The record is a 173-nucleotide sequence from Chitinasiproducens palmae, which matches "Burkholderia RNA 14" in Rfam. Taxonomically the source falls in Chitinasiproducens (Bacteria, Pseudomonadota, Betaproteobacteria, Burkholderiales). By type it is a small RNA. About the family: Co-purified with Hfq, expression confirmed by Northern blot.
RNA sequence: GUGGGCGUGCUGACCGUGCGCAACGAACCCGUCACGAUCGUGACGGAAUUGCCGGGCCGCAUCUCGCCGCUGCUGAUCGCCGAAGUCCGGGCGCGCGUGGACGGCAUCGUGCUCAAGCGCGACUUCGUCGAAGGCAGCGAGGUCAAGGCGGGCCAACGUCUGUUCCAGAUCGA
Numbered sequence: 001g002u003g004g005g006c007g008u009g010c011u012g013a014c015c016g017u018g019c020g021c022a023a024c025g026a027a028c029c030c031g032u033c034a035c036g037a038u039c040g041u042g043a044c045g046g047a048a049u050u051g052c053c054g055g056g057c058c059g060c061a062u063c064u065c066g067c068c069g070c071u072g073c074u075g076a077u078c079g080c081c082g083a084a085g086u087c088c089g090g091g092c093g094c095g096c097g098u099g100g101a102c103g104g105c106a107u108c109g110u111g112c113u114c115a116a117g118c119g120c121g122a123c124u125u126c127g128u129c130g131a132a133g134g135c136a137g138c139g140a141g142g143u144c145a146a147g148g149c150g151g152g153c154c155a156a157c158g159u160c161u162g163u164u165c166c167a168g169a170u171c172g173a
Stems, first nucleotide, its partner, number of pairs: 004053004008047001010045001011043001013041002016038001017034002019031002056149003061143003065139001067137001069135002074131001078093004094121002097118001103113004157172002159169003
About this RNA
It scores 69 bits against the family's covariance model.